[Rfam]
RNA sequence: UUGUAACACGAACCGGUGCUAAAGGGUCCUGCCCAACGGCUACAGACAUGUGCUGUCGGGGCAGAGACCCUUUAGCACCGGUUUGUAACACGAA
Numbered sequence: 001u002u003g004u005a006a007c008a009c010g011a012a013c014c015g016g017u018g019c020u021a022a023a024g025g026g027u028c029c030u031g032c033c034c035a036a037c038g039g040c041u042a043c044a045g046a047c048a049u050g051u052g053c054u055g056u057c058g059g060g061g062c063a064g065a066g067a068c069c070c071u072u073u074a075g076c077a078c079c080g081g082u083u084u085g086u087a088a089c090a091c092g093a094a
Base pairs, nucleotide, nucleotide: 003091004090008086009085010084011083012082013081014080015079016078017077018076019075020074021073022072023071024070025069026068027067030064032060033059034058036056037055
RNA: MIR5387 microRNA precursor family
Organism: Sorghum bicolor